[Rfam]
RNA sequence: GAACGUUCUCAGGGCGGGGUGAAAUUCCCCACCGGCGGUAAUUCUGCGCAAUGCAGAUAGCCCGCGAGCGCUUGUGCGCUUCCUUCGGGAGGCAAGCAAGGUCAGCAGACCCGGUGUGAUUCCGGGGCCGACGGUUAGAGUCCGGAUAAAGAGAGAGCGGGA
Numbered sequence: 001g002a003a004c005g006u007u008c009u010c011a012g013g014g015c016g017g018g019g020u021g022a023a024a025u026u027c028c029c030c031a032c033c034g035g036c037g038g039u040a041a042u043u044c045u046g047c048g049c050a051a052u053g054c055a056g057a058u059a060g061c062c063c064g065c066g067a068g069c070g071c072u073u074g075u076g077c078g079c080u081u082c083c084u085u086c087g088g089g090a091g092g093c094a095a096g097c098a099a100g101g102u103c104a105g106c107a108g109a110c111c112c113g114g115u116g117u118g119a120u121u122c123c124g125g126g127g128c129c130g131a132c133g134g135u136u137a138g139a140g141u142c143c144g145g146a147u148a149a150a151g152a153g154a155g156a157g158c159g160g161g162a
Stems, first nucleotide, its partner, number of pairs: 004159007017029003031141002033130002035065004060128002068106002110126005132144003

The record is a 162-nucleotide sequence from Pseudomonas pohangensis, which matches "FMN riboswitch aptamer (RFN element)" in Rfam. Taxonomically the source falls in Pseudomonas (Bacteria, Pseudomonadati, Pseudomonadota, Gammaproteobacteria).